Notes
Shown here is a 70-nucleotide sequence from Cricetulus griseus, a member of the family "mir-344 microRNA precursor family". Taxonomically the source falls in Cricetulus (Eukaryota, Dipnotetrapodomorpha, Mammalia, Rodentia). A reference for the family is Chiang et al. (2010), "Mammalian microRNAs: experimental evaluation of novel and previously annotated genes", Genes Dev. The family's consensus secondary structure was predicted with RNAalifold.
RNA sequence: UUACCAGUCAGUCUCUGGCUAUAUUCCAGGACUCAGUGGAUCCUGGAUAUAGUCAGAGGCUGACUGUACA
Numbered sequence: 001u002u003a004c005c006a007g008u009c010a011g012u013c014u015c016u017g018g019c020u021a022u023a024u025u026c027c028a029g030g031a032c033u034c035a036g037u038g039g040a041u042c043c044u045g046g047a048u049a050u051a052g053u054c055a056g057a058g059g060c061u062g063a064c065u066g067u068a069c070a
Stems, first nucleotide, its partner, number of pairs: 007064003011060004016055008026039003
It scores 55 bits against the family's covariance model.